This 35-nucleotide RNA sequence from Chitinophaga oryziterrae belongs to the Rfam family "DUF805b RNA". Lineage of the source: Bacteria > Pseudomonadati > Chitinophagales > Chitinophagaceae > Chitinophaga. The match comes from Rfam's covariance-model search (46 bits). The family is grouped with related families in Rfam's "DUF805 clan". It is annotated as a cis-regulatory element.
RNA sequence: AAGGCGGUAGCUGAAAAGCCUGAAAAGAGUAAGCA
Number, nucleotide and partner (000 for none) at each position: 001a000002a021003g020004g019005c018006g000007g000008u000009a000010g034011c033012u032013g000014a000015a000016a000017a000018g005019c004020c003021u002022g000023a000024a000025a000026a000027g000028a000029g000030u000031a000032a012033g011034c010035a000